[Rfam]
The family of this 79-nucleotide RNA sequence from Brachypodium distachyon is "Small nucleolar RNA Z155". By type it is a C/D-box small nucleolar RNA. On this family, see Chen et al., Nucleic Acids Res 2003: "The high diversity of snoRNAs in plants: identification and comparative study of 120 snoRNA genes from Oryza sativa". A search with the family's covariance model found it, with a score of 78 bits. Its family is annotated with nucleolus and RNA processing in the Gene Ontology. Rfam 15.1 lists 429 matches to the family in 196 species.

RNA sequence: AGUUGAUGUGAUGAUAAGAUUUCACAGAAAAUCAAUUAGUGAUGACCAAAAAUUACAGACUACAAUUAUCUGAUCAACU
Numbered sequence: 001a002g003u004u005g006a007u008g009u010g011a012u013g014a015u016a017a018g019a020u021u022u023c024a025c026a027g028a029a030a031a032u033c034a035a036u037u038a039g040u041g042a043u044g045a046c047c048a049a050a051a052a053u054u055a056c057a058g059a060c061u062a063c064a065a066u067u068a069u070c071u072g073a074u075c076a077a078c079u
Stems, first nucleotide, its partner, number of pairs: 001079006
The pairing is the family consensus, mapped onto this sequence.